[Rfam]
RNA sequence: AAUGUAUGACUCUUCAACCUCAGGAUUCGCAGAGUAAAUAGAAUGCAGUCCUGAGGUUGUUGAGUUGUGCAUU
Numbered sequence: 001a002a003u004g005u006a007u008g009a010c011u012c013u014u015c016a017a018c019c020u021c022a023g024g025a026u027u028c029g030c031a032g033a034g035u036a037a038a039u040a041g042a043a044u045g046c047a048g049u050c051c052u053g054a055g056g057u058u059g060u061u062g063a064g065u066u067g068u069g070c071a072u073u
Stems, first nucleotide, its partner, number of pairs: 002072005010064003015059006022052005029046003
RNA: mir-676 microRNA precursor family